[Rfam]
RNA sequence: GGGGUGUGCUCAGAGCAGGGAGCCUGAGGAAUGGCUCCUCUGUUUACAACACACCCAACAGGAAUCUGGGUUCAUUGUUACAAGGAGCACAAAACUUGCGUCCUUCCCAUGAACAAAUGCCCUACACAU
Numbered sequence: 001g002g003g004g005u006g007u008g009c010u011c012a013g014a015g016c017a018g019g020g021a022g023c024c025u026g027a028g029g030a031a032u033g034g035c036u037c038c039u040c041u042g043u044u045u046a047c048a049a050c051a052c053a054c055c056c057a058a059c060a061g062g063a064a065u066c067u068g069g070g071u072u073c074a075u076u077g078u079u080a081c082a083a084g085g086a087g088c089a090c091a092a093a094a095c096u097u098g099c100g101u102c103c104u105u106c107c108c109a110u111g112a113a114c115a116a117a118u119g120c121c122c123u124a125c126a127c128a129u
Base pairs, nucleotide, nucleotide: 002056003055004054005053006052007051008050013045014044015043016042017041018040019039020038022035023034024033069122070121072119076115077114078113081111082110084104085103088100090098091097092096